RNA sequence: UGGACCAAUGAUGAGAGAGUAUUUAUGAACAAAGGAUCGUGAUUAAUUUGGUUCUAAGUAAAAUACAGAGGUCCAUU
Dot-bracket structure: ((((((...............................................................))))))..
Source information:
This 77-nucleotide sequence from Nannospalax galili belongs to the Rfam family "Small nucleolar RNA SNORD112". The base pairs follow the family's consensus structure, which was predicted with WAR. It is annotated as a C/D-box small nucleolar RNA. The match comes from Rfam's covariance-model search (91 bits). The family is grouped with related families in Rfam's "SNORD74 clan". Gene Ontology terms of the family: nucleolus and RNA processing. NCBI's taxonomy places the organism under Eukaryota, Bilateria, Deuterostomia, Eutheria, Nannospalax. For this family Rfam cites "Identification of tandemly-repeated C/D snoRNA genes at the imprinted human 14q32 domain reminiscent of those at the Prader-Willi/Angelman syndrome region" (Cavaille et al., Hum Mol Genet, 2002).